[Rfam]
RNA sequence: UAGGCGCUACCUUAAAAAAGGAGUGCACUUUAAACUUUAAUUUUUAGCAAACUAAAGUAGAAGAAAACCGCUUGGAUCCCUUUAAGACCGAGACGGGUGA
Numbered sequence: 001u002a003g004g005c006g007c008u009a010c011c012u013u014a015a016a017a018a019a020g021g022a023g024u025g026c027a028c029u030u031u032a033a034a035c036u037u038u039a040a041u042u043u044u045u046a047g048c049a050a051a052c053u054a055a056a057g058u059a060g061a062a063g064a065a066a067a068c069c070g071c072u073u074g075g076a077u078c079c080c081u082u083u084a085a086g087a088c089c090g091a092g093a094c095g096g097g098u099g100a
Base pairs, nucleotide, nucleotide: 002029003028004026005025006024007023008022010021011020068096069095070094071092072091073090074089075088077087078086
The record is a 100-nucleotide RNA from Neomoorella humiferrea, which matches "pan motif" in Rfam. It is annotated as a cis-regulatory element.